[Rfam]
RNA sequence: GCAUUCGUCUAGCGUAUUCUUCGUAUAAUGGCAGAGAUAAGGUCUGCGAGUUUCUACCAAGCUACCGUAAAUGGCUUGACUACGAGAAAUCAAGGUGUUCCC
Number, nucleotide and partner (000 for none) at each position: 001g000002c000003a000004u000005u000006c000007g000008u000009c000010u000011a000012g000013c000014g000015u000016a000017u000018u088019c000020u086021u085022c084023g083024u082025a081026u000027a000028a000029u049030g000031g047032c046033a045034g044035a043036g000037a000038u000039a000040a000041g000042g000043u035044c034045u033046g032047c031048g000049a029050g000051u000052u000053u000054c000055u000056a000057c000058c078059a077060a076061g075062c074063u073064a072065c000066c000067g000068u000069a000070a000071a000072u064073g063074g062075c061076u060077u059078g058079a000080c000081u025082a024083c023084g022085a021086g020087a000088a018089a000090u000091c000092a000093a000094g000095g000096u000097g000098u000099u000100c000101c000102c000

Purine riboswitch aptamer: a 102-nucleotide RNA from Halalkalibacter nanhaiisediminis. The organism belongs to Halalkalibacter, within Bacteria. The match comes from Rfam's covariance-model search (77 bits).